RNA sequence: GGGAGUUGUAUGGCCUCCCGGAAUCGGGUUGCAGGACCGGGUUCCAAACUACAUCGAGCUGCCGAGGUAAAGAGCCUCAAGGUAGUGAGCGUCGAUGGAAAGGCGUCCGUUGGAGACGUCAAGU
Dot-bracket structure: (((((.........)))))((((((.((((....)))).))))))....(.((((((((.(((.((((.....))))...))).)).....))))))....((((((.......))))))..).
Numbered sequence: 001g002g003g004a005g006u007u008g009u010a011u012g013g014c015c016u017c018c019c020g021g022a023a024u025c026g027g028g029u030u031g032c033a034g035g036a037c038c039g040g041g042u043u044c045c046a047a048a049c050u051a052c053a054u055c056g057a058g059c060u061g062c063c064g065a066g067g068u069a070a071a072g073a074g075c076c077u078c079a080a081g082g083u084a085g086u087g088a089g090c091g092u093c094g095a096u097g098g099a100a101a102g103g104c105g106u107c108c109g110u111u112g113g114a115g116a117c118g119u120c121a122a123g124u
Stems, first nucleotide, its partner, number of pairs: 001019005020045006027038004050123001052097006058086002061083003065077004102120006
A member of the RNA family "Group II catalytic intron D1-D4-2" from Alkalispirochaeta americana, 124 nucleotides long. Group II introns are found in rRNA, tRNA and mRNA of organelles in fungi, plants and protists, and also in mRNA in bacteria. The organism belongs to Alkalispirochaeta, within Bacteria. It scores 94 bits against the family's covariance model. Pairs were carried over by alignment from the consensus structure.